[Rfam]
Nucleotides: 081
Stems, first nucleotide, its partner, number of pairs: 008073008017064004022059001024057006032049001034047002
Number, partner (000 for none) and nucleotide at each position: 001000a002000g003000c004000c005000c006000u007000g008073g009072a010071g011070a012069g013068a014067a015066a016000a017064g018063c019062a020061g021000g022059g023000u024057c025056u026055g027054a028053u029052c030000c031000g032049u033000a034047g035046c036000c037000u038000c039000u040000g041000u042000g043000g044000c045000a046035g047034c048000a049032g050000u051000u052029g053028a054027u055026c056025a057024g058000c059022c060000c061020u062019u063018g064017c065000c066015u067014u068013u069012c070011u071010c072009u073008u074000u075000c076000u077000c078000u079000c080000c081000a
The family of this 81-nucleotide RNA sequence from Pipistrellus kuhlii is "mir-574 microRNA precursor family". Its Rfam clan is "mir-574 microRNA precursor clan". Gene Ontology terms of the family: RISC complex and miRNA-mediated post-transcriptional gene silencing. A search with the family's covariance model found it, with a score of 89 bits. A reference for the family is Lui et al. (2007), "Patterns of known and novel small RNAs in human cervical cancer", Cancer Res.